[Rfam]
RNA: Pseudoknot of tRNA-like structure
Organism: Cucumovirus CMV
RNA sequence: GGCGCCUUUGAAACCAUCUCCUAGGUUUCUUCGGAAGGACUUCGGUCCGUGUACUUCUAGCACAAGGUGCUAGUUUAGAGUACGGGCAUCCCCCCGUUUUGCGGGGGUCUCUAAAAGGAG
Dot-bracket structure: ((.((((..((((((...[.[[.)))))).......((((....))))..((((..(((((((...)))))))......)))))))).))(((((((...))))))).........]].]